The family of this 163-nucleotide RNA from Mycoplasma todarodis is "Lysine riboswitch aptamer". Gene Ontology term of the family: lysine biosynthetic process. Riboswitches are metabolite binding domains within certain messenger RNAs that serve as precision sensors for their corresponding targets. A search with the family's covariance model found it, with a score of 53 bits.
RNA sequence: AUAUAGUAGUGAGGUGCUUGAAGCAUUAGUAAUUCAUGGAGAAGGUAUUCUAAGAAAUGAACGAAAGGGUUAAAGCCGAAUGGGUGAUAUAGACAUAUACAUCACAUGCAAUAUUAAGAAAUACUUAUUAUUGUCCGUAAUUAUGCGAGGAGCGCUUUGAAUA
Numbered sequence: 001a002u003a004u005a006g007u008a009g010u011g012a013g014g015u016g017c018u019u020g021a022a023g024c025a026u027u028a029g030u031a032a033u034u035c036a037u038g039g040a041g042a043a044g045g046u047a048u049u050c051u052a053a054g055a056a057a058u059g060a061a062c063g064a065a066a067g068g069g070u071u072a073a074a075g076c077c078g079a080a081u082g083g084g085u086g087a088u089a090u091a092g093a094c095a096u097a098u099a100c101a102u103c104a105c106a107u108g109c110a111a112u113a114u115u116a117a118g119a120a121a122u123a124c125u126u127a128u129u130a131u132u133g134u135c136c137g138u139a140a141u142u143a144u145g146c147g148a149g150g151a152g153c154g155c156u157u158u159g160a161a162u163a
Stems, first nucleotide, its partner, number of pairs: 006158001008156004016076004021071001023070002033061005080107003084103001088099004108134006115127004136147004